RNA sequence: AAAAAAAAAGCCCUGCAGUUUCUGCAGGGUCCUUCUAUUUCCCUUUCCAGGAUAGAAGGAAAAGGGAGAGGAGAAACCGGAGGAAGAACUUAUGGGGAAACGUAAGUCUUCUCCGCGG
Numbered sequence: 001a002a003a004a005a006a007a008a009a010g011c012c013c014u015g016c017a018g019u020u021u022c023u024g025c026a027g028g029g030u031c032c033u034u035c036u037a038u039u040u041c042c043c044u045u046u047c048c049a050g051g052a053u054a055g056a057a058g059g060a061a062a063a064g065g066g067a068g069a070g071g072a073g074a075a076a077c078c079g080g081a082g083g084a085a086g087a088a089c090u091u092a093u094g095g096g097g098a099a100a101c102g103u104a105a106g107u108c109u110u111c112u113c114c115g116c117g118g
Base pairs, nucleotide, nucleotide: 011029012028013027014026015025016024017023018022030066031065032064033063034062039054042051043050078115079114080113081112083111084110085109086108088107089106090105091104092103
Dot-bracket structure: ..........((((((((...))))))))(((((....(..((......))..).......)))))...........((((.((((.(((((..........)))))))))))))...